[Rfam]
Nucleotides: 089
Stems, first nucleotide, its partner, number of pairs: 003087001005085008
Number, partner (000 for none) and nucleotide at each position: 001000u002000a003087g004000c005085c006084u007083g008082u009081u010080g011079u012078c013000a014000a015000u016000g017000a018000u019000g020000g021000a022000u023000u024000c025000u026000u027000u028000u029000u030000g031000a032000g033000a034000c035000u036000g037000a038000a039000u040000a041000c042000a043000g044000c045000u046000g047000a048000u049000u050000u051000g052000a053000g054000u055000c056000a057000a058000c059000a060000u061000u062000u063000c064000g065000u066000c067000a068000c069000u070000a071000c072000c073000a074000c075000u076000g077000a078012g079011a080010c081009a082008a083007c084006a085005g086000u087003u088000g089000u
The family of this 89-nucleotide RNA sequence from Centropus unirufus is "Small nucleolar RNA SNORD70".
snoRNA HBII-234 belongs to the C/D family of snoRNAs. It is the human orthologue of the mouse MBII-234 and is predicted to guide 2'O-ribose methylation of the small 18S rRNA on position A512. It is hosted, together with HBII-95, by the core C/D box snoRNA protein encoding gene NOP5/NOP58.
Rfam classes the family as a C/D-box small nucleolar RNA.
Pairs were carried over by alignment from the consensus structure.
On this family, see Huttenhofer et al., EMBO J 2001: "RNomics: an experimental approach that identifies 201 candidates for novel, small, non-messenger RNAs in mouse".
Gene Ontology terms of the family: RNA processing and nucleolus.